[Rfam]
RNA sequence: UGUCAGCUUCCCCCAUCACACCGGAGGCUGUUACGUCAUUCUGUUGUAUCAGCUCCAGCUGUGAUGAGUGAAGAGGCA
Numbered sequence: 001u002g003u004c005a006g007c008u009u010c011c012c013c014c015a016u017c018a019c020a021c022c023g024g025a026g027g028c029u030g031u032u033a034c035g036u037c038a039u040u041c042u043g044u045u046g047u048a049u050c051a052g053c054u055c056c057a058g059c060u061g062u063g064a065u066g067a068g069u070g071a072a073g074a075g076g077c078a
Base pairs, nucleotide, nucleotide: 003076004075007073008072009071010070012068014066015065016064017063018062019061020060022058023056024055025054027053028052029051030050
This 78-nucleotide RNA sequence from Branchiostoma belcheri belongs to the Rfam family "mir-4868 microRNA precursor family".
Rfam links the family to the GO terms miRNA-mediated post-transcriptional gene silencing and RISC complex.
The family has 6 seed sequences and 9 matches in Rfam 15.1.
Rfam's curators put it in the seed alignment.
Lineage of the source: Eukaryota > Eumetazoa > Deuterostomia > Cephalochordata > Branchiostoma.
The base pairs follow the family's consensus structure, which was predicted with RNAalifold.